[Rfam]
RNA sequence: GGUGACAAGUUUGGGGCCAUAGCAGAACUGCUUAUGGUGCAGCCAAGUCAGAUUCCAAUGAAUCUGUGAAUUUUGCU
Numbered sequence: 001g002g003u004g005a006c007a008a009g010u011u012u013g014g015g016g017c018c019a020u021a022g023c024a025g026a027a028c029u030g031c032u033u034a035u036g037g038u039g040c041a042g043c044c045a046a047g048u049c050a051g052a053u054u055c056c057a058a059u060g061a062a063u064c065u066g067u068g069a070a071u072u073u074u075g076c077u
Base pairs, nucleotide, nucleotide: 015044016043017042021077022076023075024074025073026072027071029039030038049066050065051064052063053062054061055060

Notes
Mammalian CPEB3 ribozyme: a 77-nucleotide RNA from Alligator sinensis. It scores 38 bits against the family's covariance model. Pairs were carried over by alignment from the consensus structure, which is taken from published work. From the family's description: The mammalian CPEB3 ribozyme is a self cleaving RNA located in the second intron of the CPEB3 gene which belongs to a family of genes regulating messenger RNA polyadenylation. This ribozyme is highly conserved and found only in mammals. The CPEB3 ribozyme is structurally and biochemically related to the human hepatitis delta virus (HDV) ribozyme and the HDV ribozyme is proposed to have arisen from the human transcriptome. There is currently only one other known self cleaving ribozyme in mammals, the CoTC motif. The organism belongs to Alligator, within Eukaryota. Rfam 15.1 lists 5,706 matches to the family in 197 species.